[Rfam]
RNA: 6C RNA
RNA sequence: AGUGCCUUCAGCCCAACCCCCCGGGGCUGGACGCAACGGCCCCCACCCACUCCCCCCUGGUGGGGGCCGUUCCAU
Numbered sequence: 001a002g003u004g005c006c007u008u009c010a011g012c013c014c015a016a017c018c019c020c021c022c023g024g025g026g027c028u029g030g031a032c033g034c035a036a037c038g039g040c041c042c043c044c045a046c047c048c049a050c051u052c053c054c055c056c057c058u059g060g061u062g063g064g065g066g067c068c069g070u071u072c073c074a075u
Stems, first nucleotide, its partner, number of pairs: 002034003007031008035071013